[Rfam]
RNA sequence: UGGCAACAGUGAUGACGACUCUUGACUCUGCAAUGCAACUUGGAGACACCAGUCCCUCUAAACUGAUGUUGCCA
Number, nucleotide and partner (000 for none) at each position: 001u074002g073003g072004c071005a070006a069007c068008a000009g000010u000011g000012a000013u000014g000015a000016c000017g000018a000019c000020u000021c000022u000023u000024g000025a000026c000027u000028c000029u000030g000031c000032a000033a000034u000035g000036c000037a000038a000039c000040u000041u000042g000043g000044a000045g000046a000047c000048a000049c000050c000051a000052g000053u000054c000055c000056c000057u000058c000059u000060a000061a000062a000063c000064u000065g000066a000067u000068g007069u006070u005071g004072c003073c002074a001
Annotation:
The family of this 74-nucleotide RNA from Podarcis muralis is "Small nucleolar RNA SNORD127". Its family is annotated with nucleolus and RNA processing in the Gene Ontology. By type it is a C/D-box small nucleolar RNA. A reference for the family is Yang et al. (2006), "snoSeeker: an advanced computational package for screening of guide and orphan snoRNA genes in the human genome", Nucleic Acids Res. The base pairs follow the family's consensus structure, which was predicted with WAR. Taxonomically the source falls in Podarcis (Eukaryota, Vertebrata, Teleostomi, Lacertinae).